The family of this 80-nucleotide RNA from Roseateles aquatilis is "Burkholderia RNA 7 (anti-hemB)". Its family is annotated with protein binding and bacterial biofilm matrix in the Gene Ontology. About the family: This RNA motif was identified by computational search in b-proteobacteria Burkholderia. Co-purified with Hfq, expression confirmed by Northern blot.
Nucleotides: 080
Stems, first nucleotide, its partner, number of pairs: 002024006025040005048071010
Number, partner (000 for none) and nucleotide at each position: 001000u002024c003023c004022u005021g006020c007019u008000u009000u010000u011000c012000c013000u014000c015000c016000c017000u018000g019007a020006g021005c022004a023003g024002g025040g026039a027038c028037u029036g030000u031000u032000c033000a034000u035000u036029c037028a038027g039026u040025c041000g042000u043000u044000u045000c046000g047000g048071g049070c050069c051068c052067g053066a054065c055064u056063g057062c058000c059000c060000a061000g062057g063056c064055g065054g066053u067052c068051g069050g070049g071048c072000c073000u074000u075000u076000u077000u078000u079000c080000u
A reference for the family is Sass et al. (2017), "Identification of small RNAs abundant in Burkholderia cenocepacia biofilms reveal putative regulators with a potential role in carbon and iron metabolism", Sci Rep.